[Rfam]
This 226-nucleotide sequence from Staphylococcus haemolyticus belongs to the Rfam family "S. aureus tsr24 small RNA". Pairs were carried over by alignment from the consensus structure, which was predicted with RNAfold.

RNA sequence: AAUUUUUAUACAUAAGGCACCUCGUUAAUUUAGUUUAGUGAUGUUUAUUAAAUUAUACGAAAGUGCUUUAUUUUUUUAAAGUAUUACAAUGUAAAAUUACAUAUAAACACAAAGUAUUUUGGCGAGACUCUUGAGGGAACAGGACAAGCUGAAGACUACAGGCUGAAGCUGUCCCCUAAGAAAGCGAGCCAACAAUACGGAGUAUUGUAAAUAAAGAAGCCAGUAA
Number, nucleotide and partner (000 for none) at each position: 001a000002a212003u211004u210005u209006u000007u207008a206009u000010a000011c000012a000013u000014a000015a000016g000017g000018c000019a000020c000021c000022u041023c040024g039025u038026u037027a036028a035029u000030u000031u000032a000033g000034u000035u028036u027037a026038g025039u024040g023041a022042u000043g064044u063045u062046u061047a000048u060049u059050a054051a000052a000053u000054u050055a000056u000057a000058c000059g049060a048061a046062a045063g044064u043065g000066c000067u000068u000069u000070a000071u000072u000073u000074u000075u000076u000077u000078a000079a000080a000081g000082u204083a203084u202085u201086a000087c199088a000089a000090u000091g100092u099093a098094a000095a000096a000097u000098u093099a092100c091101a000102u111103a000104u109105a000106a000107a000108c000109a104110c000111a102112a000113a000114g198115u197116a196117u195118u194119u192120u191121g190122g189123c188124g000125a000126g000127a000128c000129u181130c180131u179132u178133g000134a177135g176136g175137g174138a000139a172140c171141a000142g169143g000144a000145c000146a000147a164148g163149c162150u161151g000152a000153a000154g000155a000156c000157u000158a000159c000160a000161g150162g149163c148164u147165g000166a000167a000168g000169c142170u000171g140172u139173c000174c137175c136176c135177u134178a132179a131180g130181a129182a000183a000184g000185c000186g000187a000188g123189c122190c121191a120192a119193c000194a118195a117196u116197a115198c114199g087200g000201a085202g084203u083204a082205u000206u008207g007208u000209a005210a004211a003212u002213a000214a000215a000216g000217a000218a000219g000220c000221c000222a000223g000224u000225a000226a000